[Rfam]
RNA sequence: ACGACCCUGGCGGGAGAGACCGGGACCGCGUGAGCGGAACCGGCGCCGAAGGAGCAAACGCCCCGGAAACUCUCAGGCCAAAGGACCGCCAAGGGUAA
Numbered sequence: 001a002c003g004a005c006c007c008u009g010g011c012g013g014g015a016g017a018g019a020c021c022g023g024g025a026c027c028g029c030g031u032g033a034g035c036g037g038a039a040c041c042g043g044c045g046c047c048g049a050a051g052g053a054g055c056a057a058a059c060g061c062c063c064c065g066g067a068a069a070c071u072c073u074c075a076g077g078c079c080a081a082a083g084g085a086c087c088g089c090c091a092a093g094g095g096u097a098a
Stems, first nucleotide, its partner, number of pairs: 006093001008091006020043004045078003048074002052072003059065002
The record is a 98-nucleotide RNA from Inquilinus limosus, which matches "Glycine riboswitch aptamer" in Rfam. Lineage of the source: Bacteria > Pseudomonadati > Alphaproteobacteria > Rhodospirillaceae > Inquilinus. The literature on the family includes a 2004 paper in Science by Mandal et al., "A glycine-dependent riboswitch that uses cooperative binding to control gene expression". Pairs were carried over by alignment from the consensus structure. The match comes from Rfam's covariance-model search (63 bits).